[Rfam]
RNA: RcsR1 sRNA
Organism: Pararhizobium mangrovi
RNA sequence: UCAAUGCAAUCUGGUGGUGGGCUCGCUAACGGCGGCCGCAACCAGUCACGUUCAAGAGAACCGACGAGCCGCCCUGGAGUUCCCCGGCGGCUUUUUU
Numbered sequence: 001u002c003a004a005u006g007c008a009a010u011c012u013g014g015u016g017g018u019g020g021g022c023u024c025g026c027u028a029a030c031g032g033c034g035g036c037c038g039c040a041a042c043c044a045g046u047c048a049c050g051u052u053c054a055a056g057a058g059a060a061c062c063g064a065c066g067a068g069c070c071g072c073c074c075u076g077g078a079g080u081u082c083c084c085c086g087g088c089g090g091c092u093u094u095u096u097u
Stems, first nucleotide, its partner, number of pairs: 011045005017039001020037003024034003051058002066093008076083002